[Rfam]
Notes:
Rfam assigns this 166-nucleotide RNA from Anolis carolinensis to the family "Small Cajal body specific RNA 1". Taxonomically the source falls in Anolis (Eukaryota, Metazoa, Deuterostomia, Anolidae). From the family's description: scaRNAs are a specific class of small nuclear RNAs which localise to the Cajal bodies and guide the modification of RNA polymerase II transcribed spliceosomal RNAs U1, U2, U4, U5 and U12. Gene Ontology terms of the family: RNA processing, nucleolus and Cajal body.

RNA sequence: AAGCACUUGAUACUAACCAAGCCAUCUCUACUUUUGUUCUCUUAUAUAGAGUGCAGAAGUACAACUAGUGAUUGGCUGGGUCUAAAAAGUGCAACAUGAAAGUAAGCCAUGUGAUUAAGCUCAAUGUGUGCAGGAUCACACUGGGUUAUAACACAGCGGCACAUAC
Numbered sequence: 001a002a003g004c005a006c007u008u009g010a011u012a013c014u015a016a017c018c019a020a021g022c023c024a025u026c027u028c029u030a031c032u033u034u035u036g037u038u039c040u041c042u043u044a045u046a047u048a049g050a051g052u053g054c055a056g057a058a059g060u061a062c063a064a065c066u067a068g069u070g071a072u073u074g075g076c077u078g079g080g081u082c083u084a085a086a087a088a089g090u091g092c093a094a095c096a097u098g099a100a101a102g103u104a105a106g107c108c109a110u111g112u113g114a115u116u117a118a119g120c121u122c123a124a125u126g127u128g129u130g131c132a133g134g135a136u137c138a139c140a141c142u143g144g145g146u147u148a149u150a151a152c153a154c155a156g157c158g159g160c161a162c163a164u165a166c
Stems, first nucleotide, its partner, number of pairs: 003092006016081003020077004024072003027063001029061005035055003039051002106160003125138002129134001141156003145152002